The family of this 248-nucleotide RNA sequence from Erinaceus europaeus is "Voltage-gated potassium-channel Kv1.4 IRES". About the family: This family represents the Kv1.4 voltage-gated potassium-channel internal ribosome entry site (IRES). This region has been shown to mediate internal ribosome entry in cells derived from brain, heart, and skeletal muscle, tissues known to express Kv1.4 mRNA species.
RNA sequence: UAGGCUUGAGUGUGCUAGGCUGUUUUUCUAGACCAGCCAAGCUGUGGAAUGCAACAUCAAAUUCCUGGGAAGAGAGAGCAUGGGGUGUGCUGAUUUAAAAACAGAAGAUGCAAAGUUGAACCGAAAAUAUCCUUAAUUAAUUUAUCCAAACUUACUUUAAUUUGGUGAGAAAAGAAGCUGCUCUCUUUUAUCCCCCUUUCUUCUUCUUCUACAACUGGAACCAGCCAUUUCUAAAAUCCAUCACCAUG
Number, nucleotide and partner (000 for none) at each position: 001u000002a000003g000004g000005c000006u000007u000008g000009a000010g000011u000012g000013u000014g000015c000016u000017a000018g000019g000020c000021u000022g000023u000024u000025u000026u000027u000028c000029u000030a000031g000032a000033c000034c000035a000036g000037c000038c000039a000040a000041g000042c000043u000044g000045u000046g232047g231048a230049a229050u000051g000052c000053a000054a000055c000056a000057u000058c000059a000060a000061a000062u000063u000064c000065c000066u000067g205068g204069g203070a202071a201072g200073a199074g198075a197076g196077a000078g194079c000080a186081u000082g184083g183084g182085g181086u180087g179088u000089g178090c177091u176092g000093a000094u173095u172096u171097a000098a000099a000100a000101a000102c000103a143104g142105a141106a000107g000108a000109u139110g138111c000112a000113a000114a000115g000116u136117u135118g134119a000120a133121c000122c000123g131124a130125a000126a000127a000128u000129a000130u124131c123132c000133u120134u118135a117136a116137u000138u110139a109140a000141u105142u104143u103144a000145u000146c000147c000148a000149a000150a000151c169152u168153u167154a166155c165156u164157u000158u000159a000160a000161u000162u000163u000164g156165g155166u154167g153168a152169g151170a000171a096172a095173a094174g000175a000176a091177g090178c089179u087180g086181c085182u084183c083184u082185c000186u080187u000188u000189u000190a000191u000192c000193c000194c078195c000196c076197u075198u074199u073200c072201u071202u070203c069204u068205u067206c000207u000208u000209c000210u000211a000212c000213a000214a000215c000216u000217g000218g000219a000220a000221c000222c000223a000224g000225c000226c000227a000228u000229u049230u048231c047232u046233a000234a000235a000236a000237u000238c000239c000240a000241u000242c000243a000244c000245c000246a000247u000248g000

A reference for the family is Jang et al. (2004), "Structurally distinct elements mediate internal ribosome entry within the 5'-noncoding region of a voltage-gated potassium channel mRNA", J Biol Chem. The organism belongs to Erinaceus, within Eukaryota.